[Rfam]
RNA sequence: ACGCUUUAGCUGGUUGAAUCCGGGCCAAAUUGUGCCAAAGUUGAAGACUUUGGUCCCCUUCAACCAGCUGUAGUUA
Numbered sequence: 001a002c003g004c005u006u007u008a009g010c011u012g013g014u015u016g017a018a019u020c021c022g023g024g025c026c027a028a029a030u031u032g033u034g035c036c037a038a039a040g041u042u043g044a045a046g047a048c049u050u051u052g053g054u055c056c057c058c059u060u061c062a063a064c065c066a067g068c069u070g071u072a073g074u075u076a
Base pairs, nucleotide, nucleotide: 003074004073005072008069009068010067011066012065013064014063015062016061017060018059022055023054025053026052027051028050029049031047